This 171-nucleotide RNA from Triticum aestivum belongs to the Rfam family "MIR2118 microRNA precursor family". NCBI's taxonomy places the organism under Eukaryota, Streptophytina, Spermatophyta, Mesangiospermae, Triticum. On this family, see Zhu et al., Genome Res 2008: "A diverse set of microRNAs and microRNA-like small RNAs in developing rice grains". Rfam links the family to the GO terms RISC complex and miRNA-mediated post-transcriptional gene silencing.
[Rfam]
RNA sequence: GCUAGGAAGAGGAAGAAAGAGAGGGCCUAAGAGCAAUGGGGAUGAGAGCAUAGAGGAAAGCCUAAGUUGUCGGUUCUUCACCUCUUGUGUUGAGGUGGAAAUACCGUUUGGUAUUUCCUGAUGCCUCUCAUUCCUAUUGUUCUUAAGCGCUCCUUCCUCAUCCUUUUUGUU
Numbered sequence: 001g002c003u004a005g006g007a008a009g010a011g012g013a014a015g016a017a018a019g020a021g022a023g024g025g026c027c028u029a030a031g032a033g034c035a036a037u038g039g040g041g042a043u044g045a046g047a048g049c050a051u052a053g054a055g056g057a058a059a060g061c062c063u064a065a066g067u068u069g070u071c072g073g074u075u076c077u078u079c080a081c082c083u084c085u086u087g088u089g090u091u092g093a094g095g096u097g098g099a100a101a102u103a104c105c106g107u108u109u110g111g112u113a114u115u116u117c118c119u120g121a122u123g124c125c126u127c128u129c130a131u132u133c134c135u136a137u138u139g140u141u142c143u144u145a146a147g148c149g150c151u152c153c154u155u156c157c158u159c160a161u162c163c164u165u166u167u168u169g170u171u
Base pairs, nucleotide, nucleotide: 009162010161012159013158015156016155017154021152022151023150026147028145029144030143031142032141033140034139035138037136038135039134040133041132042131043130044129045128046127047126049123050122051121053119055118056117057116058115059114060112061111